A member of the RNA family "Small nucleolar RNA Z105" from Apostasia shenzhenica, 77 nucleotides long. By type it is a C/D-box small nucleolar RNA. Lineage of the source: Eukaryota > Viridiplantae > Embryophyta > Petrosaviidae > Apostasia. Rfam 15.1 lists 621 matches to the family in 204 species. Its family is annotated with RNA processing and nucleolus in the Gene Ontology.
[Rfam]
RNA sequence: GCGGCAUGAUGAUGAUCUAAGUUAAAAGUUGCCCGAGAUCUAUCCUUGAGCGAUUAAAAUCCUCCUACUCAUUCUGA
Number, nucleotide and partner (000 for none) at each position: 001g000002c000003g000004g000005c000006a072007u071008g070009a069010u000011g000012a000013u000014g000015a000016u000017c000018u000019a000020a000021g000022u000023u000024a000025a000026a000027a000028g000029u000030u000031g000032c000033c052034c000035g000036a047037g000038a000039u000040c000041u000042a000043u000044c000045c000046u000047u036048g000049a000050g000051c000052g033053a000054u000055u000056a000057a000058a000059a000060u000061c000062c000063u000064c000065c000066u000067a000068c000069u009070c008071a007072u006073u000074c000075u000076g000077a000